About this RNA:
tRNA: a 74-nucleotide RNA sequence from Streptomyces netropsis. The source organism's lineage runs through Bacteria, Bacillati, Actinomycetota, Actinomycetes and Streptomyces. It scores 64 bits against the family's covariance model. From the family's description: Transfer RNA (tRNA) molecules are approximately 80 nucleotides in length.
RNA sequence: AGGGGCGUAGCUCAGCUGGCCAGAGCAGCGGACUCCAAACCCGCUAGUCGCAGGUUCGAAUCCUGUCGCCCCUG
Numbered sequence: 001a002g003g004g005g006c007g008u009a010g011c012u013c014a015g016c017u018g019g020c021c022a023g024a025g026c027a028g029c030g031g032a033c034u035c036c037a038a039a040c041c042c043g044c045u046a047g048u049c050g051c052a053g054g055u056u057c058g059a060a061u062c063c064u065g066u067c068g069c070c071c072c073u074g
Stems, first nucleotide, its partner, number of pairs: 001073007010026004028044004050066005